A member of the RNA family "Mason-Pfizer monkey virus packaging signal" from Callithrix jacchus, 276 nucleotides long. Pairs were carried over by alignment from the consensus structure, which was predicted with PFOLD. The match comes from Rfam's covariance-model search (97 bits). A reference for the family is Harrison et al. (1995), "Secondary structure model of the Mason-Pfizer monkey virus 5' leader sequence: identification of a structural motif common to a variety of retroviruses", J Virol. Rfam's curators write: This family represents a group of sequences that are related to the Mason-Pfizer monkey virus (MPMV) packaging signal.
RNA sequence: UGGCACCCAACGUGACAGCUCGAGUAUGAGGGACACAGUGAGGGACGCCAUCGAGGUCAGCCGGCACAGAAGGAUUAAGAGACCCAGAGGAAAGAGCGUCGUGGGAACCUGCCACGGACUCGCGCUCCGGUAAGUGGACGGCGAAUAUGGGACAGGAAAUCAGCCAGCAUCAGUUGUUCAUAGAGAGUUUAAGUAAGGCUUUAAAGGCGUGGGGAGUAAAGGUGAAAAUAAAAUGAUUGUGUAAAUAUUUUGACUAUAUUCAGGAUGUCUUCCCUU
Numbered sequence: 001u002g003g004c005a006c007c008c009a010a011c012g013u014g015a016c017a018g019c020u021c022g023a024g025u026a027u028g029a030g031g032g033a034c035a036c037a038g039u040g041a042g043g044g045a046c047g048c049c050a051u052c053g054a055g056g057u058c059a060g061c062c063g064g065c066a067c068a069g070a071a072g073g074a075u076u077a078a079g080a081g082a083c084c085c086a087g088a089g090g091a092a093a094g095a096g097c098g099u100c101g102u103g104g105g106a107a108c109c110u111g112c113c114a115c116g117g118a119c120u121c122g123c124g125c126u127c128c129g130g131u132a133a134g135u136g137g138a139c140g141g142c143g144a145a146u147a148u149g150g151g152a153c154a155g156g157a158a159a160u161c162a163g164c165c166a167g168c169a170u171c172a173g174u175u176g177u178u179c180a181u182a183g184a185g186a187g188u189u190u191a192a193g194u195a196a197g198g199c200u201u202u203a204a205a206g207g208c209g210u211g212g213g214g215a216g217u218a219a220a221g222g223u224g225a226a227a228a229u230a231a232a233a234u235g236a237u238u239g240u241g242u243a244a245a246u247a248u249u250u251u252g253a254c255u256a257u258a259u260u261c262a263g264g265a266u267g268u269c270u271u272c273c274c275u276u
Stems, first nucleotide, its partner, number of pairs: 006032003012027003038046002082131003089126002094121003100116005137153001142149002160203001162201001163199003210252005216246002220238002223235002262275003